[Rfam]
RNA sequence: GGCAUUUUUGUGAUUUGCAGCUAGUAGUCUGGGUCCAGUUGCAUAGUCACAAAAAUGAUC
Numbered sequence: 001g002g003c004a005u006u007u008u009u010g011u012g013a014u015u016u017g018c019a020g021c022u023a024g025u026a027g028u029c030u031g032g033g034u035c036c037a038g039u040u041g042c043a044u045a046g047u048c049a050c051a052a053a054a055a056u057g058a059u060c
Stems, first nucleotide, its partner, number of pairs: 001060001003057012016043007

A member of the RNA family "mir-153 microRNA precursor family" from Salmo salar, 60 nucleotides long.
NCBI's taxonomy places the organism under Eukaryota, Eumetazoa, Gnathostomata, Protacanthopterygii, Salmo.
For this family Rfam cites "The developmental miRNA profiles of zebrafish as determined by small RNA cloning" (Chen et al., Genes Dev, 2005).
Gene Ontology terms of the family: RISC complex and miRNA-mediated post-transcriptional gene silencing.